[Rfam]
Background
This 74-nucleotide sequence from Taishania pollutisoli belongs to the Rfam family "tRNA". The organism belongs to Taishania, within Bacteria. The base pairs follow the family's consensus structure, which is taken from published work.
RNA sequence: GGCUCCGUGGCGCAACUGUAUAGCGCACUGGAUUUCGGCUCCAGCGGUUGCAGGUUAGAAUCCUGCCGGGGUCA
Numbered sequence: 001g002g003c004u005c006c007g008u009g010g011c012g013c014a015a016c017u018g019u020a021u022a023g024c025g026c027a028c029u030g031g032a033u034u035u036c037g038g039c040u041c042c043a044g045c046g047g048u049u050g051c052a053g054g055u056u057a058g059a060a061u062c063c064u065g066c067c068g069g070g071g072u073c074a
Stems, first nucleotide, its partner, number of pairs: 001073007010026004028044005050066005